c-di-GMP-I riboswitch aptamer: an 89-nucleotide sequence from Halalkalibacter suaedae. It scores 72 bits against the family's covariance model. Pairs were carried over by alignment from the consensus structure, which is taken from published work. Gene Ontology term of the family: cyclic-di-GMP binding. NCBI's taxonomy places the organism under Bacteria, Bacillota, Bacilli, Caryophanales, Halalkalibacter.
RNA sequence: AAUAAGAAAAGGCAUAACCGUCGAAAGGCGGUGUCGCAAAGCUAUAGGGGCUAAAGUCUCAAAGAAGAUUAUGCCAGCCAGCUACCUCC
Numbered sequence: 001a002a003u004a005a006g007a008a009a010a011g012g013c014a015u016a017a018c019c020g021u022c023g024a025a026a027g028g029c030g031g032u033g034u035c036g037c038a039a040a041g042c043u044a045u046a047g048g049g050g051c052u053a054a055a056g057u058c059u060c061a062a063a064g065a066a067g068a069u070u071a072u073g074c075c076a077g078c079c080a081g082c083u084a085c086c087u088c089c
Base pairs, nucleotide, nucleotide: 012037013036017032018031019030020029021028022027040083041082042081043080047079048078049075050074051073056069057068058067059066